MIR396 microRNA precursor family: a 93-nucleotide sequence from Coptis chinensis. A reference for the family is Jones-Rhoades and Bartel (2004), "Computational identification of plant microRNAs and their targets, including a stress-induced miRNA", Mol Cell.

[Rfam]
RNA sequence: UGUCAUGCUUUUCCACAGCUUUCUUGAACUUCUUUUCCACGACUAAUUGAGUACAAUAUAGAAGUUCAAGAAAGCUGUGGGAAAACUUGGCGU
Numbered sequence: 001u002g003u004c005a006u007g008c009u010u011u012u013c014c015a016c017a018g019c020u021u022u023c024u025u026g027a028a029c030u031u032c033u034u035u036u037c038c039a040c041g042a043c044u045a046a047u048u049g050a051g052u053a054c055a056a057u058a059u060a061g062a063a064g065u066u067c068a069a070g071a072a073a074g075c076u077g078u079g080g081g082a083a084a085a086c087u088u089g090g091c092g093u
Stems, first nucleotide, its partner, number of pairs: 003090003007086001013080003017076006024069004029064005